atpB RNA: a 130-nucleotide sequence from Corynebacterium bovis. The base pairs follow the family's consensus structure, which is taken from published work. By type it is a cis-regulatory element.
RNA sequence: CUCCCCCCGCCGUGUGGAUGUGCGACGGAGUCCACGGUGGCGGGAUACCUCUCAAUGACGACCUCCAUCGCACCGCGUGACGCCUAGAUCAUGCGGCCCAAUCACGGGAGAGAACGCUGAGCGUUACAAC
Numbered sequence: 001c002u003c004c005c006c007c008c009g010c011c012g013u014g015u016g017g018a019u020g021u022g023c024g025a026c027g028g029a030g031u032c033c034a035c036g037g038u039g040g041c042g043g044g045a046u047a048c049c050u051c052u053c054a055a056u057g058a059c060g061a062c063c064u065c066c067a068u069c070g071c072a073c074c075g076c077g078u079g080a081c082g083c084c085u086a087g088a089u090c091a092u093g094c095g096g097c098c099c100a101a102u103c104a105c106g107g108g109a110g111a112g113a114a115c116g117c118u119g120a121g122c123g124u125u126a127c128a129a130c
Base pairs, nucleotide, nucleotide: 002045003044004043005042007040008039009038010037011036012035073096074095075094076093077092078091079090080089